[Rfam]
L31-Firmicutes ribosomal protein leader: a 37-nucleotide sequence. The literature on the family includes a 2020 paper in BMC Microbiol by Eckert and Weinberg, "Discovery of 20 novel ribosomal leader candidates in bacteria and archaea".
RNA sequence: CUCUGGGCCUGCUGCAAGGGCUCAGGGCGUGAAAGAG
Numbered sequence: 001c002u003c004u005g006g007g008c009c010u011g012c013u014g015c016a017a018g019g020g021c022u023c024a025g026g027g028c029g030u031g032a033a034a035g036a037g
Stems, first nucleotide, its partner, number of pairs: 001027010